A member of the RNA family "mir-9229 microRNA precursor family" from Myotis myotis, 71 nucleotides long. The organism belongs to Myotis, within Eukaryota. Rfam 15.1 lists 27,225 matches to the family in 9 species. Pairs were carried over by alignment from the consensus structure, which was predicted with RNAalifold.
RNA sequence: AGACACCCCUCUGGGGCAAGACUUCAGUGGGGCUUUGGUGCUCACUGAGUCUGCUCCCUGAGUGUGUCCCU
Number, nucleotide and partner (000 for none) at each position: 001a000002g068003a067004c066005a065006c064007c000008c062009c000010u060011c000012u000013g057014g056015g055016g054017c053018a052019a000020g051021a050022c049023u000024u048025c047026a046027g045028u044029g043030g042031g041032g039033c038034u000035u000036u000037g000038g033039u032040g000041c031042u030043c029044a028045c027046u026047g025048a024049g022050u021051c020052u018053g017054c016055u015056c014057c013058c000059u000060g010061a000062g008063u000064g006065u005066g004067u003068c002069c000070c000071u000